[Rfam]
RNA sequence: UUCUUAUCAAGAGAGGUGGAGGGACUGACCCUACGAAACCUCGGCAACCAGCAUAUUGUUAUGCCCCGGUGCCAAAUUCAGAGGGAUGAAAUCAUUCCGAAGAUGAGAA
Numbered sequence: 001u002u003c004u005u006a007u008c009a010a011g012a013g014a015g016g017u018g019g020a021g022g023g024a025c026u027g028a029c030c031c032u033a034c035g036a037a038a039c040c041u042c043g044g045c046a047a048c049c050a051g052c053a054u055a056u057u058g059u060u061a062u063g064c065c066c067c068g069g070u071g072c073c074a075a076a077u078u079c080a081g082a083g084g085g086a087u088g089a090a091a092u093c094a095u096u097c098c099g100a101a102g103a104u105g106a107g108a109a
Base pairs, nucleotide, nucleotide: 001109002108003107004106005105006104007103008102013042014041015040016039017038021031022030023029025081026080027079028078043073044072045071046070048069049068051064052063053062077101083097084096085095